[Rfam]
RNA: Bacterial RNase P class B
RNA sequence: GUAAAUAGCUAAUUGCUGUAUUAGAAAUAAUAUAGAGGAAAGUCCGUGCUCACACAAGCUGUGAUGCUUGUAGUGUUUGUGUAUGUAUAAUUAAUAAAACAUAGCAUGAUGUGCUCAUGACGGCGGUUUUAUUAAUUCCUAAUAUUUUUUUAAAAUAAAGGAAUAAAACCAUAAAGUGCCACAGAGACGAGUAAUAGGGAAACCUAUGAGAUGAAACGCGGUAAACCCCACAAGUGAGAAACCUAAAUUUUGGUAAGGGAGUCUAAGUUAAACAAAACGAAGUUUACUUAGGAUAGAUUUAGAUCUAUAGAUAAAUAAUUAGCAUAACUAAAUAUCUAGUUAACAGAACACGGCUUAUCAUU
Numbered sequence: 001g002u003a004a005a006u007a008g009c010u011a012a013u014u015g016c017u018g019u020a021u022u023a024g025a026a027a028u029a030a031u032a033u034a035g036a037g038g039a040a041a042g043u044c045c046g047u048g049c050u051c052a053c054a055c056a057a058g059c060u061g062u063g064a065u066g067c068u069u070g071u072a073g074u075g076u077u078u079g080u081g082u083a084u085g086u087a088u089a090a091u092u093a094a095u096a097a098a099a100c101a102u103a104g105c106a107u108g109a110u111g112u113g114c115u116c117a118u119g120a121c122g123g124c125g126g127u128u129u130u131a132u133u134a135a136u137u138c139c140u141a142a143u144a145u146u147u148u149u150u151u152a153a154a155a156u157a158a159a160g161g162a163a164u165a166a167a168a169c170c171a172u173a174a175a176g177u178g179c180c181a182c183a184g185a186g187a188c189g190a191g192u193a194a195u196a197g198g199g200a201a202a203c204c205u206a207u208g209a210g211a212u213g214a215a216a217c218g219c220g221g222u223a224a225a226c227c228c229c230a231c232a233a234g235u236g237a238g239a240a241a242c243c244u245a246a247a248u249u250u251u252g253g254u255a256a257g258g259g260a261g262u263c264u265a266a267g268u269u270a271a272a273c274a275a276a277a278c279g280a281a282g283u284u285u286a287c288u289u290a291g292g293a294u295a296g297a298u299u300u301a302g303a304u305c306u307a308u309a310g311a312u313a314a315a316u317a318a319u320u321a322g323c324a325u326a327a328c329u330a331a332a333u334a335u336c337u338a339g340u341u342a343a344c345a346g347a348a349c350a351c352g353g354c355u356u357a358u359c360a361u362u
Stems, first nucleotide, its partner, number of pairs: 004362003007358001008323007016035006040356003044353005049238005054071006077233005082103005104121001105119005122228002125170004136163004143157006176226002178222003192209001194207005242258003262292007293308006326340001